[Rfam]
A member of the RNA family "Eukaryotic large subunit ribosomal RNA" from Lachnellula suecica, 365 nucleotides of a longer RNA. Lineage of the source: Eukaryota > Fungi > saccharomyceta > Helotiales > Lachnellula.

RNA sequence: ACCUGUACGGUCUAGUCCAGCAUUGCUGCUGGGCGACACACCUGGAUGACGGGAAACUCUUUAUUACUUUAGCAUCAAACGUCCGGGUAACGCCCGGGCGGAAUACCUUAAAGUUUAGACAACCCGCAGCUGAGUCGGCUCCCUCGGAGCAUAGUCGACCGGUACAACGCUCGGUAAGGUGUGGGCUUCUCGAAAGCUUAAGGUACGAGCUACGCCCGCUGGAGACAGCGCUCUGUUUAAUGGUGAGGGUAAUCCCAUCCGUAACGCAGUUGUGCAUCAGGCUCAUAAUGGUCUGAUAGGUAGUACGGAACUGGCUUGUGGCAGCCAAGCGUUCAUAGCGACGUUGCUUUUUGAUCCUUCGAUGU
Numbered sequence: 001a002c003c004u005g006u007a008c009g010g011u012c013u014a015g016u017c018c019a020g021c022a023u024u025g026c027u028g029c030u031g032g033g034c035g036a037c038a039c040a041c042c043u044g045g046a047u048g049a050c051g052g053g054a055a056a057c058u059c060u061u062u063a064u065u066a067c068u069u070u071a072g073c074a075u076c077a078a079a080c081g082u083c084c085g086g087g088u089a090a091c092g093c094c095c096g097g098g099c100g101g102a103a104u105a106c107c108u109u110a111a112a113g114u115u116u117a118g119a120c121a122a123c124c125c126g127c128a129g130c131u132g133a134g135u136c137g138g139c140u141c142c143c144u145c146g147g148a149g150c151a152u153a154g155u156c157g158a159c160c161g162g163u164a165c166a167a168c169g170c171u172c173g174g175u176a177a178g179g180u181g182u183g184g185g186c187u188u189c190u191c192g193a194a195a196g197c198u199u200a201a202g203g204u205a206c207g208a209g210c211u212a213c214g215c216c217c218g219c220u221g222g223a224g225a226c227a228g229c230g231c232u233c234u235g236u237u238u239a240a241u242g243g244u245g246a247g248g249g250u251a252a253u254c255c256c257a258u259c260c261g262u263a264a265c266g267c268a269g270u271u272g273u274g275c276a277u278c279a280g281g282c283u284c285a286u287a288a289u290g291g292u293c294u295g296a297u298a299g300g301u302a303g304u305a306c307g308g309a310a311c312u313g314g315c316u317u318g319u320g321g322c323a324g325c326c327a328a329g330c331g332u333u334c335a336u337a338g339c340g341a342c343g344u345u346g347c348u349u350u351u352u353g354a355u356c357c358u359u360c361g362a363u364g365u
Stems, first nucleotide, its partner, number of pairs: 001355001003353001005352001007348001008346004015339002
Dot-bracket structure: (.(.(.(((((...((.................................................................................................................................................................................................................................................................................................................................))...)))).)...)).)..........